[Rfam]
RNA sequence: AGGUUUCCGGUUCACAUUCAUCGCUGUCGGUGGGUUGGUGAUGCUGUCAACUCGCCGGUCGAUGGAUGACAACCGUGUCCCU
Numbered sequence: 001a002g003g004u005u006u007c008c009g010g011u012u013c014a015c016a017u018u019c020a021u022c023g024c025u026g027u028c029g030g031u032g033g034g035u036u037g038g039u040g041a042u043g044c045u046g047u048c049a050a051c052u053c054g055c056c057g058g059u060c061g062a063u064g065g066a067u068g069a070c071a072a073c074c075g076u077g078u079c080c081c082u
Stems, first nucleotide, its partner, number of pairs: 001082003006077001008075002015068009026059007034051004
RNA: mir-181 microRNA precursor family